A member of the RNA family "MIR2655 microRNA precursor family" from Medicago truncatula, 229 nucleotides long. The source organism's lineage runs through Eukaryota, Streptophyta, Mesangiospermae, Hologalegina and Medicago. Gene Ontology terms of the family: miRNA-mediated post-transcriptional gene silencing and RISC complex. The match comes from Rfam's covariance-model search (122 bits).

[Rfam]
RNA sequence: GGCUUAAUACAUGCUUUGCUCCCUUAACUUAUUUUUGAAUUUCAUUUUGGUCCCUUAACUUUAAACCGUCUCAAUUUGGUCCCAUAACUUUACCUCCGUUUACCUAACAGAAGGGACCACUUAGGUAAACGGAGGCAAAGUUAUGGGACCAAAUUGAGACGGUUUAAAGUUAAGGGACCAAAAUGAAAUUCAAAAAUAAGUUAAGGGACCAAAGCAUGUAUUAAGGCAA
Numbered sequence: 001g002g003c004u005u006a007a008u009a010c011a012u013g014c015u016u017u018g019c020u021c022c023c024u025u026a027a028c029u030u031a032u033u034u035u036u037g038a039a040u041u042u043c044a045u046u047u048u049g050g051u052c053c054c055u056u057a058a059c060u061u062u063a064a065a066c067c068g069u070c071u072c073a074a075u076u077u078g079g080u081c082c083c084a085u086a087a088c089u090u091u092a093c094c095u096c097c098g099u100u101u102a103c104c105u106a107a108c109a110g111a112a113g114g115g116a117c118c119a120c121u122u123a124g125g126u127a128a129a130c131g132g133a134g135g136c137a138a139a140g141u142u143a144u145g146g147g148a149c150c151a152a153a154u155u156g157a158g159a160c161g162g163u164u165u166a167a168a169g170u171u172a173a174g175g176g177a178c179c180a181a182a183a184u185g186a187a188a189u190u191c192a193a194a195a196a197u198a199a200g201u202u203a204a205g206g207g208a209c210c211a212a213a214g215c216a217u218g219u220a221u222u223a224a225g226g227c228a229a
Stems, first nucleotide, its partner, number of pairs: 001227001003225002014214003018210001020208001022206013036192003